Rfam assigns this 136-nucleotide RNA from Clostridium kluyveri to the family "Ribosomal protein L20 leader". A reference for the family is Zengel and Lindahl (1994), "Diverse mechanisms for regulating ribosomal protein synthesis in Escherichia coli", Prog Nucleic Acid Res Mol Biol.
RNA sequence: AACGUUAAGAAGAAACAGCCGUUUCUCACCUUACAGCAAAGCUAGUAAGGUUGUGUUUAUAAGAAUUUUUUAUUAUAAAGAUUCUUUGCUAUGGGAUGUAUUUAAGAGCGGCUUUAGGCCGCUUUUUUUAUGUGUA
Numbered sequence: 001a002a003c004g005u006u007a008a009g010a011a012g013a014a015a016c017a018g019c020c021g022u023u024u025c026u027c028a029c030c031u032u033a034c035a036g037c038a039a040a041g042c043u044a045g046u047a048a049g050g051u052u053g054u055g056u057u058u059a060u061a062a063g064a065a066u067u068u069u070u071u072a073u074u075a076u077a078a079a080g081a082u083u084c085u086u087u088g089c090u091a092u093g094g095g096a097u098g099u100a101u102u103u104a105a106g107a108g109c110g111g112c113u114u115u116a117g118g119c120c121g122c123u124u125u126u127u128u129u130a131u132g133u134g135u136a
Base pairs, nucleotide, nucleotide: 011026012025013024014023015022016021028051029050030049033046034045036042037041107123108122109121110120111119112118113117
Dot-bracket structure: ..........((((((....)))))).(((..((.((...))..))..))).......................................................(((((((...))))))).............
The base pairs follow the family's consensus structure, which was predicted with CMfinder. The match comes from Rfam's covariance-model search (67 bits). This family is a putative r-protein leader autoregulatory structure found in B. subtilis and other low-GC Gram-positive bacteria.